[Rfam]
RNA sequence: UUUUAGGCAACCAAUUGCGUUAGGGAUUGUAGUGGAAAUCCUUUUUGAGAGGAACGAACAAAAAGAUUGAAACGGAAAGCCCGACCCUUU
Dot-bracket structure: ......................(((.((...((...((((..(((((...........))))).))))...))...)).)))........
Numbered sequence: 001u002u003u004u005a006g007g008c009a010a011c012c013a014a015u016u017g018c019g020u021u022a023g024g025g026a027u028u029g030u031a032g033u034g035g036a037a038a039u040c041c042u043u044u045u046u047g048a049g050a051g052g053a054a055c056g057a058a059c060a061a062a063a064a065g066a067u068u069g070a071a072a073c074g075g076a077a078a079g080c081c082c083g084a085c086c087c088u089u090u
Stems, first nucleotide, its partner, number of pairs: 023082003027078002032073002037068004043063005

The record is a 90-nucleotide sequence from Pelobium manganitolerans, which matches "Flavo-1 RNA" in Rfam. The base pairs follow the family's consensus structure, which is taken from published work. Rfam classes the family as a small RNA.